The family of this 171-nucleotide RNA sequence from Methylobacterium durans is "caulobacter sRNA CC2171".
By type it is a small RNA.
It scores 96 bits against the family's covariance model.

[Rfam]
RNA sequence: CAACUAACGAAAGGAGGUGAUCCAGUGUCUCAUUGUCAUCAGCCGCGGUCGUCGGCUCUCCGGACCUGGACCGUCGCCUCCGGCGCUUUCGCGUAAAGCGUUCCGAGACGCGAGACAGUUUCGGCCGGACCGCGGUUCGGCAAUGGAAGGGCCGCCCUCUCGGGCGGCCCU
Numbered sequence: 001c002a003a004c005u006a007a008c009g010a011a012a013g014g015a016g017g018u019g020a021u022c023c024a025g026u027g028u029c030u031c032a033u034u035g036u037c038a039u040c041a042g043c044c045g046c047g048g049u050c051g052u053c054g055g056c057u058c059u060c061c062g063g064a065c066c067u068g069g070a071c072c073g074u075c076g077c078c079u080c081c082g083g084c085g086c087u088u089u090c091g092c093g094u095a096a097a098g099c100g101u102u103c104c105g106a107g108a109c110g111c112g113a114g115a116c117a118g119u120u121u122c123g124g125c126c127g128g129a130c131c132g133c134g135g136u137u138c139g140g141c142a143a144u145g146g147a148a149g150g151g152c153c154g155c156c157c158u159c160u161c162g163g164g165c166g167g168c169c170c171u
Base pairs, nucleotide, nucleotide: 016023017022031145032144033143034142035141036140037139044069047066048065049064050063071076078105081100083094084093085092086091109134110133111132112131148171149170150169151168152167153166154165155164156163157162